[Rfam]
RNA sequence: GUCAUAUAAAGAUGUAUUAGAUGCAAGACAAUCUAGCAUUUCCCUUUACGGCAUUGUAAAAUAUUAGAAGUUCAAACAAAAGUAAUUGUUGUGUGGUUAAGAAUCGAAACGAUUUGAGUUUGAAUGGAAGAGGUUAACCGUAUGACCUUGUGUUGAAAAACACUAAAAAUAAUCUUGAAUGCCGAUUUCUGAAAUUUCGUUAGUUUGAGUUACGGUAUC
Numbered sequence: 001g002u003c004a005u006a007u008a009a010a011g012a013u014g015u016a017u018u019a020g021a022u023g024c025a026a027g028a029c030a031a032u033c034u035a036g037c038a039u040u041u042c043c044c045u046u047u048a049c050g051g052c053a054u055u056g057u058a059a060a061a062u063a064u065u066a067g068a069a070g071u072u073c074a075a076a077c078a079a080a081a082g083u084a085a086u087u088g089u090u091g092u093g094u095g096g097u098u099a100a101g102a103a104u105c106g107a108a109a110c111g112a113u114u115u116g117a118g119u120u121u122g123a124a125u126g127g128a129a130g131a132g133g134u135u136a137a138c139c140g141u142a143u144g145a146c147c148u149u150g151u152g153u154u155g156a157a158a159a160a161c162a163c164u165a166a167a168a169a170u171a172a173u174c175u176u177g178a179a180u181g182c183c184g185a186u187u188u189c190u191g192a193a194a195u196u197u198c199g200u201u202a203g204u205u206u207g208a209g210u211u212a213c214g215g216u217a218u219c
Base pairs, nucleotide, nucleotide: 001052002051003050005048006047008045010041011040012039013038014037015036018035019034020033021032022031023029070125071124072123073122074121075120076119077118084114085113086112087111088110089109090108095105096104098102131148132147133146134145135144137216138215139214140213141212142211143169150163151162152161153160154159174209175208176207177206178205179204180203181201183199184198
Shown here is a 219-nucleotide RNA sequence, a member of the family "IS605-orfB-I RNA".